epsC RNA: a 110-nucleotide sequence from Bacillus sp. MUM 116.
It scores 109 bits against the family's covariance model.
NCBI's taxonomy places the organism under Bacteria, Bacillota, Bacilli, Caryophanales, Bacillus.
The base pairs follow the family's consensus structure, which is taken from published work.

RNA sequence: UGGAGAUGUCUCCUUUCCAAUAUAAAUGGAGGCACUCGGUCAUGCUGUGGGUCUUUGGACCUUAGACGCAAGUCGUCGAGAGUGUGACGUGAGGACGGGUUAAAUGCCCA
Numbered sequence: 001u002g003g004a005g006a007u008g009u010c011u012c013c014u015u016u017c018c019a020a021u022a023u024a025a026a027u028g029g030a031g032g033c034a035c036u037c038g039g040u041c042a043u044g045c046u047g048u049g050g051g052u053c054u055u056u057g058g059a060c061c062u063u064a065g066a067c068g069c070a071a072g073u074c075g076u077c078g079a080g081a082g083u084g085u086g087a088c089g090u091g092a093g094g095a096c097g098g099g100u101u102a103a104a105u106g107c108c109c110a
Base pairs, nucleotide, nucleotide: 001019002018003017004016007034008033009032010031011030012029013028035093036092037091038090039088040087041086042085043084044083045082046081049062050061051060052059053058065077066076067075068074097109098108099107100106